Background: small nucleolar RNA snoR135: a 150-nucleotide RNA from Turnera subulata. A reference for the family is Chen and Wu (2009), "Mining small RNA sequencing data: a new approach to identify small nucleolar RNAs in Arabidopsis", Nucleic Acids Res. The base pairs follow the family's consensus structure, which was predicted with RNAalifold. The family's RNA type in Rfam is H/ACA-box small nucleolar RNA.
RNA sequence: UCAGCAGGGAUAGUGUGUAUCGGUGUUGUGCUAUUAACAAUGCACUUUGAAUCCGAAAGAGUUCCCUGCGACAUAAAAUCUUGGGAAGAUGGGCAGUUGUGUUUCAAUUUUAGUAGUUGAAAAUUCUCAACAAUCAUCUUCCUUACAUCC
Numbered sequence: 001u002c003a004g005c006a007g008g009g010a011u012a013g014u015g016u017g018u019a020u021c022g023g024u025g026u027u028g029u030g031c032u033a034u035u036a037a038c039a040a041u042g043c044a045c046u047u048u049g050a051a052u053c054c055g056a057a058a059g060a061g062u063u064c065c066c067u068g069c070g071a072c073a074u075a076a077a078a079u080c081u082u083g084g085g086a087a088g089a090u091g092g093g094c095a096g097u098u099g100u101g102u103u104u105c106a107a108u109u110u111u112a113g114u115a116g117u118u119g120a121a122a123a124u125u126c127u128c129a130a131c132a133a134u135c136a137u138c139u140u141c142c143u144u145a146c147a148u149c150c
Stems, first nucleotide, its partner, number of pairs: 004069007015045006083143010096131004